RNA: permuted transfer-messenger RNA
RNA sequence: GGAAAUAAAUGGCCGCCGCAAUAAACCAUUCGGACCCGGGGGCGGUACCCGGCGCCUCCACCCAAGCCCGUUCUUCUCGUUUCGAAAAGGCGGGUUUCGGCGGGGGCGAAAUAGGAUCGACGAGGGCGUAAAGGGCUCGCUUUUUCCCGGUAUUGUUCCGCCGUUAUCGGGCUACUGCAAUAGUUGCCAACGACAACUAUGCUCCGGUUGCUCAGGCUGCGUAA
Numbered sequence: 001g002g003a004a005a006u007a008a009a010u011g012g013c014c015g016c017c018g019c020a021a022u023a024a025a026c027c028a029u030u031c032g033g034a035c036c037c038g039g040g041g042g043c044g045g046u047a048c049c050c051g052g053c054g055c056c057u058c059c060a061c062c063c064a065a066g067c068c069c070g071u072u073c074u075u076c077u078c079g080u081u082u083c084g085a086a087a088a089g090g091c092g093g094g095u096u097u098c099g100g101c102g103g104g105g106g107c108g109a110a111a112u113a114g115g116a117u118c119g120a121c122g123a124g125g126g127c128g129u130a131a132a133g134g135g136c137u138c139g140c141u142u143u144u145u146c147c148c149g150g151u152a153u154u155g156u157u158c159c160g161c162c163g164u165u166a167u168c169g170g171g172c173u174a175c176u177g178c179a180a181u182a183g184u185u186g187c188c189a190a191c192g193a194c195a196a197c198u199a200u201g202c203u204c205c206g207g208u209u210g211c212u213c214a215g216g217c218u219g220c221g222u223a224a
Stems, first nucleotide, its partner, number of pairs: 001147005015136003026126002030123003036052005053108007148163004